Group II catalytic intron D1-D4-7: a 142-nucleotide RNA from Powellomyces hirtus.
Rfam 15.1 lists 1,296 matches to the family in 705 species.
The literature on the family includes a 2001 paper in Trends Genet by Bonen and Vogel, "The ins and outs of group II introns".
About the family: Group II introns are found in rRNA, tRNA and mRNA of organelles in fungi, plants and protists, and also in mRNA in bacteria.
The base pairs follow the family's consensus structure.
[Rfam]
RNA sequence: CCAGAACGUCUAUCUUCUGAGCCUACUUACACAUGCGUCCCGAGUAAUUGGGGGGUGUGAAGUUGUAAGGACAAUGCAUAUUGGGUUAAAUAUGUUAGGCUAGAUGUAUAAGGGUAACGUAAGUGAAUCUACGGUUGAAGCG
Number, nucleotide and partner (000 for none) at each position: 001c000002c019003a018004g017005a016006a015007c000008g000009u000010c000011u000012a000013u000014c000015u006016u005017c004018u003019g002020a000021g000022c000023c000024u000025a000026c000027u068028u067029a066030c065031a064032c059033a058034u057035g056036c055037g000038u053039c052040c051041c050042g049043a048044g000045u000046a000047a000048u043049u042050g041051g040052g039053g038054g000055g036056u035057g034058u033059g032060a000061a000062g000063u000064u031065g030066u029067a028068a027069g000070g000071a000072c000073a000074a000075u000076g000077c000078a000079u000080a000081u104082u103083g000084g101085g100086u099087u000088a000089a000090a000091u000092a000093u000094g000095u000096u000097a000098g000099g086100c085101u084102a000103g082104a081105u133106g132107u131108a130109u000110a000111a000112g000113g000114g000115u000116a000117a124118c123119g000120u000121a000122a000123g118124u117125g000126a000127a000128u000129c000130u108131a107132c106133g105134g000135u000136u000137g000138a000139a000140g000141c000142g000